[Rfam]
RNA sequence: GGCUUCCCUCUUUGGGGUGAUUGAUCGUGGAGCACCCCCAUCAAUUGCCCCGCAGAGGGUGGCC
Numbered sequence: 001g002g003c004u005u006c007c008c009u010c011u012u013u014g015g016g017g018u019g020a021u022u023g024a025u026c027g028u029g030g031a032g033c034a035c036c037c038c039c040a041u042c043a044a045u046u047g048c049c050c051c052g053c054a055g056a057g058g059g060u061g062g063c064c
Stems, first nucleotide, its partner, number of pairs: 001064004006059006013052013027038001029036002
The record is a 64-nucleotide RNA sequence from Myotis brandtii, which matches "mir-9242 microRNA precursor family" in Rfam.